The record is an 83-nucleotide sequence from Nonlabens ponticola, which matches "Flavo-1 RNA" in Rfam. The source organism's lineage runs through Bacteria, Flavobacteriia, Flavobacteriales, Flavobacteriaceae and Nonlabens. It scores 58 bits against the family's covariance model.
RNA sequence: UUUGCGUUAAGGAUCGUAGUGGAAAUCCUUUUUGUCCAGCCAUGAGCUGGACAAAAAGAUUGUAGCGCAGAGCCUGACCGCUA
Numbered sequence: 001u002u003u004g005c006g007u008u009a010a011g012g013a014u015c016g017u018a019g020u021g022g023a024a025a026u027c028c029u030u031u032u033u034g035u036c037c038a039g040c041c042a043u044g045a046g047c048u049g050g051a052c053a054a055a056a057a058g059a060u061u062g063u064a065g066c067g068c069a070g071a072g073c074c075u076g077a078c079c080g081c082u083a
Stems, first nucleotide, its partner, number of pairs: 010075003014071002019066002024061004030056011